The record is a 129-nucleotide RNA sequence from Indicator maculatus, which matches "Small nucleolar RNA SNORA71" in Rfam.

RNA sequence: ACCUGCAUUCGAAAGUGAUCGCGGCCUGGCCGUGGCCGGGUCAUUGAUAGUGCAGGGAGAGGAAUGCCGAGAGCCUUCCCGUGUCUGCGGGGAUCGUCCCUGCCCUCCAGACCCUGUUGCUGUCGGACA
Numbered sequence: 001a002c003c004u005g006c007a008u009u010c011g012a013a014a015g016u017g018a019u020c021g022c023g024g025c026c027u028g029g030c031c032g033u034g035g036c037c038g039g040g041u042c043a044u045u046g047a048u049a050g051u052g053c054a055g056g057g058a059g060a061g062g063a064a065u066g067c068c069g070a071g072a073g074c075c076u077u078c079c080c081g082u083g084u085c086u087g088c089g090g091g092g093a094u095c096g097u098c099c100c101u102g103c104c105c106u107c108c109a110g111a112c113c114c115u116g117u118u119g120c121u122g123u124c125g126g127a128c129a
Base pairs, nucleotide, nucleotide: 002056003055004054005053006052007051008050009049014045015044016043017042018041019040020039023037024036025035026034067126068125069124070123072121073120074119083112084111085110086109087108089107090106091105092104
NCBI's taxonomy places the organism under Eukaryota, Theropoda, Neognathae, Indicatoridae, Indicator. Rfam 15.1 lists 1,805 matches to the family in 606 species. The family's consensus secondary structure was predicted with PFOLD. It is annotated as an H/ACA-box small nucleolar RNA. A reference for the family is Ganot et al. (1997), "The family of box ACA small nucleolar RNAs is defined by an evolutionarily conserved secondary structure and ubiquitous sequence elements essential for RNA accumulation", Genes Dev. From the family's description: The members of this family belong to the H/ACA class of snoRNAs which bind a number of proteins (including dyskerin, Gar1p and Nop10p) to form snoRNP complexes. This class of snoRNAs are thought to guide the sites of modification of uridines to pseudouridines by forming direct base pairing interactions with substrate RNAs. This family includes U71 (SNORA71), ACA39 (SNORA39) and ACA60 (SNORA60). U71 and ACA60 are predicted to guide the pseudouridylation of U406 and U1004 in 18S rRNA respectively. There is currently no target RNA identified for ACA39.